[Rfam]
RNA sequence: UUCUUAUCCAGAGAGGCGGAGGGACUGACCCUAUGAAGCCCGGCAACCAGCAGAAAUGCAUGGUGCUAAUUUCAGCAGAACAGCUAACGUUCUGAAAGAUGAGAC
Numbered sequence: 001u002u003c004u005u006a007u008c009c010a011g012a013g014a015g016g017c018g019g020a021g022g023g024a025c026u027g028a029c030c031c032u033a034u035g036a037a038g039c040c041c042g043g044c045a046a047c048c049a050g051c052a053g054a055a056a057u058g059c060a061u062g063g064u065g066c067u068a069a070u071u072u073c074a075g076c077a078g079a080a081c082a083g084c085u086a087a088c089g090u091u092c093u094g095a096a097a098g099a100u101g102a103g104a105c
Stems, first nucleotide, its partner, number of pairs: 002104007013041001015040003021031003025075004042067004047063002050059003071097001076094006
The family of this 105-nucleotide sequence from Fictibacillus arsenicus is "SAM riboswitch aptamer (S box leader)". Lineage of the source: Bacteria > Bacillati > Bacilli > Fictibacillaceae > Fictibacillus. The family's consensus secondary structure is taken from published work.